[Rfam]
RNA sequence: UGUGAUACCCAUCAAAGGAGUAGUUCCCCAGGAGCUACUUUACCGUAUUCUAAAUUC
Numbered sequence: 001u002g003u004g005a006u007a008c009c010c011a012u013c014a015a016a017g018g019a020g021u022a023g024u025u026c027c028c029c030a031g032g033a034g035c036u037a038c039u040u041u042a043c044c045g046u047a048u049u050c051u052a053a054a055u056u057c
Stems, first nucleotide, its partner, number of pairs: 017041011
Dot-bracket structure: ................(((((((((((...)))))))))))................